[Rfam]
The family of this 36-nucleotide RNA sequence is "DUF805b RNA".
Clan: DUF805 clan.

RNA sequence: CAGGAGUAAACCGAAAAUCCUAUCAAAGAGUAGGUG
Dot-bracket structure: .((((....[[[.....))))...........]]].